[Rfam]
RNA sequence: AGGGGGAGCGCUGGAUCUUGGGCUGUGUCCCCUACUGCCCUGGGCUCCAGGGCCUGCAUUGCUGGAAUCUUGCUCCCGGGGCUGCACAGCCCCCU
Numbered sequence: 001a002g003g004g005g006g007a008g009c010g011c012u013g014g015a016u017c018u019u020g021g022g023c024u025g026u027g028u029c030c031c032c033u034a035c036u037g038c039c040c041u042g043g044g045c046u047c048c049a050g051g052g053c054c055u056g057c058a059u060u061g062c063u064g065g066a067a068u069c070u071u072g073c074u075c076c077c078g079g080g081g082c083u084g085c086a087c088a089g090c091c092c093c094c095u
Base pairs, nucleotide, nucleotide: 001095002094003093004092005091006090010087012084013083014082017079018078020076021075022074024072025071027069028066029065032064033061034060036058037057038056042054044053045052046051
Dot-bracket structure: ((((((...(.(((..((.(((.((.(((..(((.(((...(.(((....)))).))).))..)))..).)).))).))..)))..)..))))))